[Rfam]
RNA sequence: CUUUCCAUUUAUUUGCUGCUCUGGUCGCUCAAUGCCAUGAGCAGUUAUAGGCAUGGGAUAAAAUAAUAUUGAGCCAUUGUAAAUGGAGAUGGAACAGUGUCAUUUCUCCUACAUGGUCUAGACAUUG
Dot-bracket structure: ..((((((......(((((((((..(.......).)).))))))).......))))))..........(((.((((.((((....(((((((.(...).)))))))...)))))))).)))......
Numbered sequence: 001c002u003u004u005c006c007a008u009u010u011a012u013u014u015g016c017u018g019c020u021c022u023g024g025u026c027g028c029u030c031a032a033u034g035c036c037a038u039g040a041g042c043a044g045u046u047a048u049a050g051g052c053a054u055g056g057g058a059u060a061a062a063a064u065a066a067u068a069u070u071g072a073g074c075c076a077u078u079g080u081a082a083a084u085g086g087a088g089a090u091g092g093a094a095c096a097g098u099g100u101c102a103u104u105u106c107u108c109c110u111a112c113a114u115g116g117u118c119u120a121g122a123c124a125u126u127g
Stems, first nucleotide, its partner, number of pairs: 003058006015045007022037002026034001069121003073117004078113004086106007094098001
Shown here is a 127-nucleotide RNA sequence from Oryctolagus cuniculus, a member of the family "Small nucleolar RNA SNORA20". The family has 17 seed sequences and 437 matches in Rfam 15.1. It is annotated as an H/ACA-box small nucleolar RNA. Lineage of the source: Eukaryota > Bilateria > Teleostomi > Leporidae > Oryctolagus. ACA20 is a member of the H/ACA class of snoRNA that guide the sites of modification of uridines to pseudouridines. Its Rfam clan is "SNORA20 clan".